[Rfam]
RNA sequence: CUUUUAGUAUUAUAUUCUUAUGUAGAGUGGCCUUAAACUAAAUCACAAACAUCAAAUAUUAGGAUUUAGUUUACGCAUUUCAUUAUUUGCUGAAAAAUCCUAAAGCUUAAAGUACCGUAUCACUUAUCAGUGAUACGGUGAAAAUCUUAAAGAUGCUUAAGUUAUAAAUUAACUUAAAAAAUGGAUAAUCAGCAGGAAACCCAAUAAAUAAAAAUCAAUUGGGGAUCCUCAGAGACUAUACGUGAAACAUCUAAAUGUUAAAAAUAAUUAUGUUUAUUAUUAUUUAGAUAAUGAUAUAGUCCAAUCCAAUAUCGAAAGAAUUGG
Numbered sequence: 001c002u003u004u005u006a007g008u009a010u011u012a013u014a015u016u017c018u019u020a021u022g023u024a025g026a027g028u029g030g031c032c033u034u035a036a037a038c039u040a041a042a043u044c045a046c047a048a049a050c051a052u053c054a055a056a057u058a059u060u061a062g063g064a065u066u067u068a069g070u071u072u073a074c075g076c077a078u079u080u081c082a083u084u085a086u087u088u089g090c091u092g093a094a095a096a097a098u099c100c101u102a103a104a105g106c107u108u109a110a111a112g113u114a115c116c117g118u119a120u121c122a123c124u125u126a127u128c129a130g131u132g133a134u135a136c137g138g139u140g141a142a143a144a145u146c147u148u149a150a151a152g153a154u155g156c157u158u159a160a161g162u163u164a165u166a167a168a169u170u171a172a173c174u175u176a177a178a179a180a181a182u183g184g185a186u187a188a189u190c191a192g193c194a195g196g197a198a199a200c201c202c203a204a205u206a207a208a209u210a211a212a213a214a215u216c217a218a219u220u221g222g223g224g225a226u227c228c229u230c231a232g233a234g235a236c237u238a239u240a241c242g243u244g245a246a247a248c249a250u251c252u253a254a255a256u257g258u259u260a261a262a263a264a265u266a267a268u269u270a271u272g273u274u275u276a277u278u279a280u281u282a283u284u285u286a287g288a289u290a291a292u293g294a295u296a297u298a299g300u301c302c303a304a305u306c307c308a309a310u311a312u313c314g315a316a317a318g319a320a321u322u323g324g
Stems, first nucleotide, its partner, number of pairs: 002027004078247004083242001088194006098185003195228002200223004208215002232302001234301005250288008308322003312319002
The record is a 324-nucleotide RNA from Coemansia asiatica, which matches "Group I catalytic intron" in Rfam. The base pairs follow the family's consensus structure, which is taken from published work. A reference for the family is Cech (1990), "Self-splicing of group I introns", Annu Rev Biochem. It scores 56 bits against the family's covariance model. From the family's description: Group I catalytic introns are large self-splicing ribozymes. They catalyse their own excision from mRNA, tRNA and rRNA precursors in a wide range of organisms.